The family of this 291-nucleotide sequence from Alsobacter soli is "5' ureB small RNA". Its family is annotated with negative regulation of gene expression in the Gene Ontology. The family's consensus secondary structure was predicted with mfold.
[Rfam]
RNA sequence: GUGCUCGAUCUGCUGCGGGCAGAUGAAGUGGAUGUGGCUGUCGAAGCCGCCCGCCGUGAGGAUCUUGCCCUCGCCCGCGAUCACGUCCGUGCCCGGCCCGAUCACGAUCGUGACGCCGGGCUGGAUGUCCGGGUUGCCCGCCUUGCCGACCGCGGCGAUGCGGCCGUCCUUGAGGCCGACAUCCGCCUUCACGACGCCCCAGUGGUCGAGGAUCAGCGCGUUGGUGAUGACCGUGUCCACGGCGCCGGCCGCGUUCGUGACCUGCGACUGGCCCAUGCCGUCGCGGAUCAC
Numbered sequence: 001g002u003g004c005u006c007g008a009u010c011u012g013c014u015g016c017g018g019g020c021a022g023a024u025g026a027a028g029u030g031g032a033u034g035u036g037g038c039u040g041u042c043g044a045a046g047c048c049g050c051c052c053g054c055c056g057u058g059a060g061g062a063u064c065u066u067g068c069c070c071u072c073g074c075c076c077g078c079g080a081u082c083a084c085g086u087c088c089g090u091g092c093c094c095g096g097c098c099c100g101a102u103c104a105c106g107a108u109c110g111u112g113a114c115g116c117c118g119g120g121c122u123g124g125a126u127g128u129c130c131g132g133g134u135u136g137c138c139c140g141c142c143u144u145g146c147c148g149a150c151c152g153c154g155g156c157g158a159u160g161c162g163g164c165c166g167u168c169c170u171u172g173a174g175g176c177c178g179a180c181a182u183c184c185g186c187c188u189u190c191a192c193g194a195c196g197c198c199c200c201a202g203u204g205g206u207c208g209a210g211g212a213u214c215a216g217c218g219c220g221u222u223g224g225u226g227a228u229g230a231c232c233g234u235g236u237c238c239a240c241g242g243c244g245c246c247g248g249c250c251g252c253g254u255u256c257g258u259g260a261c262c263u264g265c266g267a268c269u270g271g272c273c274c275a276u277g278c279c280g281u282c283g284c285g286g287a288u289c290a291c
Stems, first nucleotide, its partner, number of pairs: 001291003004285001006283003011157006017075002021071002030051002033049002036047001039044001056068003077146001080143001084140001089137002091134004095129003098124002101122001103120001105118001106116001163272004170266001173263003176259001184220003188216002199208001223255002229249001233245003